[Rfam]
RNA sequence: UUCUGAAUAACAAUGCAAACAUAAAACACACAACAAUGGUAAAACACUUCUCUCUUAGCUUACGACUGUUAUCGCGCUUGGUGCGAGGCUGAUGUAUAGUUGGAGAAAAGUACUAUCCACACUUGCCCGCACUUAAAUGCGGGUUUUUUUUUACCUGUG
Numbered sequence: 001u002u003c004u005g006a007a008u009a010a011c012a013a014u015g016c017a018a019a020c021a022u023a024a025a026a027c028a029c030a031c032a033a034c035a036a037u038g039g040u041a042a043a044a045c046a047c048u049u050c051u052c053u054c055u056u057a058g059c060u061u062a063c064g065a066c067u068g069u070u071a072u073c074g075c076g077c078u079u080g081g082u083g084c085g086a087g088g089c090u091g092a093u094g095u096a097u098a099g100u101u102g103g104a105g106a107a108a109a110g111u112a113c114u115a116u117c118c119a120c121a122c123u124u125g126c127c128c129g130c131a132c133u134u135a136a137a138u139g140c141g142g143g144u145u146u147u148u149u150u151u152u153a154c155c156u157g158u159g
Stems, first nucleotide, its partner, number of pairs: 013022003037119003045110001048109002051106002054103001056102004062095002065093001067091002070088001072086006125144007
The family of this 159-nucleotide RNA from Bibersteinia trehalosi is "Actinobacillus sRNA 14". Rfam describes the family as follows. Arrc stands for Actinobacillus pleuropneumoniae Regulatory RNA Candidate. May control the expression of ferric permease (gene afuB2) and ferredoxin (fdx). TargetRNA2 was used for the predictions. Rfam's curators put it in the seed alignment. Lineage of the source: Bacteria > Pasteurellales > Pasteurellaceae > Bibersteinia > Bibersteinia trehalosi. Pairs were carried over by alignment from the consensus structure, which was predicted with RNAfold.